Record summary:
The record is an 80-nucleotide RNA sequence from Salarias fasciatus, which matches "mir-19 microRNA precursor family" in Rfam. On this family, see Lagos-Quintana et al., Science 2001: "Identification of novel genes coding for small expressed RNAs".
RNA sequence: GCUUACGGCGAGUUUUGUUGGUUUGCUCUCAGCUUCCUCCCGUCUGUGCUGUGCAAAUCCAUGCAAAGCUCUCUGUUUCU
Numbered sequence: 001g002c003u004u005a006c007g008g009c010g011a012g013u014u015u016u017g018u019u020g021g022u023u024u025g026c027u028c029u030c031a032g033c034u035u036c037c038u039c040c041c042g043u044c045u046g047u048g049c050u051g052u053g054c055a056a057a058u059c060c061a062u063g064c065a066a067a068g069c070u071c072u073c074u075g076u077u078u079c080u
Stems, first nucleotide, its partner, number of pairs: 005076004010071009020060002022057005028051001031050003